[Rfam]
RNA sequence: CGAUGGGGUAGAGGUUGCGGCUUUUAUCAGUAAAGUGGACGAGACGCAGAGAACGUUGACGACUCCGCUUGAAAGGAAAAGUCGCCGAAGUUUCCGCACUUUCUCUGAGUGGGGAAGCUGGGGCUGUUGCCGAAUAGGGACAGCACUGUCACGUUUGCUGUAAAGCAAACGUGGGGCGCUAUCUUUUCG
Numbered sequence: 001c002g003a004u005g006g007g008g009u010a011g012a013g014g015u016u017g018c019g020g021c022u023u024u025u026a027u028c029a030g031u032a033a034a035g036u037g038g039a040c041g042a043g044a045c046g047c048a049g050a051g052a053a054c055g056u057u058g059a060c061g062a063c064u065c066c067g068c069u070u071g072a073a074a075g076g077a078a079a080a081g082u083c084g085c086c087g088a089a090g091u092u093u094c095c096g097c098a099c100u101u102u103c104u105c106u107g108a109g110u111g112g113g114g115a116a117g118c119u120g121g122g123g124c125u126g127u128u129g130c131c132g133a134a135u136a137g138g139g140a141c142a143g144c145a146c147u148g149u150c151a152c153g154u155u156u157g158c159u160g161u162a163a164a165g166c167a168a169a170c171g172u173g174g175g176g177c178g179c180u181a182u183c184u185u186u187u188c189g
Base pairs, nucleotide, nucleotide: 006184007183008182009181010180011179017085018084019083020082021081022080023079024078025077033070034069035068036067037066038065039064089119090118091117092116093115094114095113097111098110099109100108120147121146123144124143125142126141127140128139130137149174150173151172152171153170154169155168156167157166
Dot-bracket structure: .....((((((.....(((((((((.......(((((((........................)))))))......)))))))))...(((((((.((((.......)))).)))))))((.((((((.(......).)))))).)).(((((((((........)))))))))....)))))).....

Annotation:
This 189-nucleotide sequence from [Anoxybacillus] calidus belongs to the Rfam family "Lysine riboswitch aptamer". Rfam describes the family as follows. Riboswitches are metabolite binding domains within certain messenger RNAs that serve as precision sensors for their corresponding targets. Allosteric rearrangement of mRNA structure is mediated by ligand binding, and this results in modulation of gene expression. This family includes riboswitches that sense lysine in a number of genes involved in lysine metabolism, including lysC. The source organism's lineage runs through Bacteria, Bacillati, Bacilli, Anoxybacillaceae and Paranoxybacillus.